[Rfam]
RNA: Eukaryotic large subunit ribosomal RNA, nucleotides 3790 to 3886
RNA sequence: CGGCUCUUCCUAUCAUUGUGAAGCAGAAUUCACCAAGCGUUGGAUUGUUCAAUAGGGAACGUGAGCUGGGUUUAGACCGUCGUGAGACAGGUUAGUU
Numbered sequence: 001c002g003g004c005u006c007u008u009c010c011u012a013u014c015a016u017u018g019u020g021a022a023g024c025a026g027a028a029u030u031c032a033c034c035a036a037g038c039g040u041u042g043g044a045u046u047g048u049u050c051a052a053u054a055g056g057g058a059a060c061g062u063g064a065g066c067u068g069g070g071u072u073u074a075g076a077c078c079g080u081c082g083u084g085a086g087a088c089a090g091g092u093u094a095g096u097u
Stems, first nucleotide, its partner, number of pairs: 001069001002067004006061001007058005014039001018033005045051001075093004079088003